[Rfam]
RNA sequence: GGGGUCGACUGGUUUUGACAGCGAGAUUAAUUAGAUUGUAAGCACGUCGAGUAAUGAUUUUGUACUCGUAAAACCCUUGAUCAACUUUUUAAUCGGCGAGAAUAACUACGCUUUAGCUGCCUAAUCCGAAUUAUAGUAGGAUUAAGCCUCGGUACACAAGGUGUACGAGCUUUAUGUCUCCGGAAAGCUUUGAUUGACAGCGUUCCAUUUGAGGCAUCGAAAAUGUCAAUAUAGGCUUAGUAGCGCUUUGAUGCUUUGCUGAAACUAAAAAAGAUAAGUUGUAAGUGGGUUGUCUUUAACCAGCUUACAAUCGAAAACCUAAGAAAAGAAUAAACGUGUAGAAAGCCUUUUGGUUACUUGUUUGGACGAGAGUUCGAUUCUCUCCGACUCCACUU
Numbered sequence: 001g002g003g004g005u006c007g008a009c010u011g012g013u014u015u016u017g018a019c020a021g022c023g024a025g026a027u028u029a030a031u032u033a034g035a036u037u038g039u040a041a042g043c044a045c046g047u048c049g050a051g052u053a054a055u056g057a058u059u060u061u062g063u064a065c066u067c068g069u070a071a072a073a074c075c076c077u078u079g080a081u082c083a084a085c086u087u088u089u090u091a092a093u094c095g096g097c098g099a100g101a102a103u104a105a106c107u108a109c110g111c112u113u114u115a116g117c118u119g120c121c122u123a124a125u126c127c128g129a130a131u132u133a134u135a136g137u138a139g140g141a142u143u144a145a146g147c148c149u150c151g152g153u154a155c156a157c158a159a160g161g162u163g164u165a166c167g168a169g170c171u172u173u174a175u176g177u178c179u180c181c182g183g184a185a186a187g188c189u190u191u192g193a194u195u196g197a198c199a200g201c202g203u204u205c206c207a208u209u210u211g212a213g214g215c216a217u218c219g220a221a222a223a224u225g226u227c228a229a230u231a232u233a234g235g236c237u238u239a240g241u242a243g244c245g246c247u248u249u250g251a252u253g254c255u256u257u258g259c260u261g262a263a264a265c266u267a268a269a270a271a272a273g274a275u276a277a278g279u280u281g282u283a284a285g286u287g288g289g290u291u292g293u294c295u296u297u298a299a300c301c302a303g304c305u306u307a308c309a310a311u312c313g314a315a316a317a318c319c320u321a322a323g324a325a326a327a328g329a330a331u332a333a334a335c336g337u338g339u340a341g342a343a344a345g346c347c348u349u350u351u352g353g354u355u356a357c358u359u360g361u362u363u364g365g366a367c368g369a370g371a372g373u374u375c376g377a378u379u380c381u382c383u384c385c386g387a388c389u390c391c392a393c394u395u
Base pairs, nucleotide, nucleotide: 001391002390003389004388005387006386007385019364020363021362024359025358027356031353032352033351034350035349038346039345043338044337045336046335047334048068049067050066051065052064055083056082057081058080059079112135114133115132116131118130120128175216176215177214178213179212180211182206183205184204185203187201188200189199193230194229195228196227197226235259236258239255240254246273247272248271249270278311279310280309281308282307283306284305285304286303288301289300290299293329294328295327296325297324368384369383370382371381372380

The family of this 395-nucleotide RNA sequence from Olleya namhaensis is "transfer-messenger RNA". NCBI's taxonomy places the organism under Bacteria, Pseudomonadati, Flavobacteriia, Flavobacteriales, Olleya. By type it is a non-coding RNA gene. Its family is annotated with RNA catabolic process in the Gene Ontology. Pairs were carried over by alignment from the consensus structure, which is taken from published work.